[Rfam]
RNA sequence: AGUUUUACGAGGUAUCAGCACAUUUUCUUUCAUUAGUGGGGAAGGCAAGAUGAAAAAUACAAAACAGCAGUAGACUUUUAAAGUUUAAAUAGACAGGUCUGAGUGCCUGAGCUUGCUCUUCCAUUUUACUUUAACCCUCUAAAGAAGCAUUCUGAUCCAGUUUCACUGCUGAUCAGCAAGGGUAAGUUGAAAGU
Numbered sequence: 001a002g003u004u005u006u007a008c009g010a011g012g013u014a015u016c017a018g019c020a021c022a023u024u025u026u027c028u029u030u031c032a033u034u035a036g037u038g039g040g041g042a043a044g045g046c047a048a049g050a051u052g053a054a055a056a057a058u059a060c061a062a063a064a065c066a067g068c069a070g071u072a073g074a075c076u077u078u079u080a081a082a083g084u085u086u087a088a089a090u091a092g093a094c095a096g097g098u099c100u101g102a103g104u105g106c107c108u109g110a111g112c113u114u115g116c117u118c119u120u121c122c123a124u125u126u127u128a129c130u131u132u133a134a135c136c137c138u139c140u141a142a143a144g145a146a147g148c149a150u151u152c153u154g155a156u157c158c159a160g161u162u163u164c165a166c167u168g169c170u171g172a173u174c175a176g177c178a179a180g181g182g183u184a185a186g187u188u189g190a191a192a193g194u
Stems, first nucleotide, its partner, number of pairs: 002019003006014003029146003033142004038137003041132004049125004056120002072100006101116001103114001105112001150191003154188001158186001161182003166176003

Description:
The family of this 194-nucleotide RNA sequence from Oreotrochilus melanogaster is "Connexin-43 internal ribosome entry site (IRES)". The base pairs follow the family's consensus structure, which is taken from published work. Rfam links the family to the GO term ribosome binding. The organism belongs to Oreotrochilus, within Eukaryota. Rfam 15.1 lists 657 matches to the family in 497 species. A reference for the family is Schiavi et al. (1999), "Connexin43 mRNA contains a functional internal ribosome entry site", FEBS Lett. A search with the family's covariance model found it, with a score of 110 bits. From the family's description: This family represents the connexin-43 internal ribosome entry site (IRES) which allows cap independent translation during conditions such as heat shock and stress.